[Rfam]
A member of the RNA family "tRNA" from Phycicoccus elongatus, 75 nucleotides long. Rfam classes the family as a transfer RNA.

RNA sequence: GCCCCCGUGGCCCAAUUGGCAGAGGCAGGCGACUUAAAAUCGCCAACGGUGCGAGUUCGAAUCUCGUCGGGGGCG
Numbered sequence: 001g002c003c004c005c006c007g008u009g010g011c012c013c014a015a016u017u018g019g020c021a022g023a024g025g026c027a028g029g030c031g032a033c034u035u036a037a038a039a040u041c042g043c044c045a046a047c048g049g050u051g052c053g054a055g056u057u058c059g060a061a062u063c064u065c066g067u068c069g070g071g072g073g074c075g
Stems, first nucleotide, its partner, number of pairs: 001074007010026003028044005051067005